[Rfam]
RNA: L25-Gammaproteobacteria ribosomal protein leader
Organism: Gallibacterium salpingitidis
RNA sequence: CAAGCCGCUGGGUCGCCUGUGGCUUG
Numbered sequence: 001c002a003a004g005c006c007g008c009u010g011g012g013u014c015g016c017c018u019g020u021g022g023c024u025u026g
Stems, first nucleotide, its partner, number of pairs: 001026008010017002